[Rfam]
RNA sequence: CAAAGGUGCAUUGUAGUCGCAUUGUCUGUGUGUUAUUACGAAGAUUCUUACAAUACUUCUGCAGUGCAAACUUUG
Numbered sequence: 001c002a003a004a005g006g007u008g009c010a011u012u013g014u015a016g017u018c019g020c021a022u023u024g025u026c027u028g029u030g031u032g033u034u035a036u037u038a039c040g041a042a043g044a045u046u047c048u049u050a051c052a053a054u055a056c057u058u059c060u061g062c063a064g065u066g067c068a069a070a071c072u073u074u075g
Stems, first nucleotide, its partner, number of pairs: 001075004006071001007068010019056001021054005

The record is a 75-nucleotide RNA sequence from Eumeta japonica, which matches "mir-33 microRNA precursor family" in Rfam. A search with the family's covariance model found it, with a score of 59 bits. On this family, see Ahn et al., Mol Hum Reprod 2010: "MicroRNA transcriptome in the newborn mouse ovaries determined by massive parallel sequencing".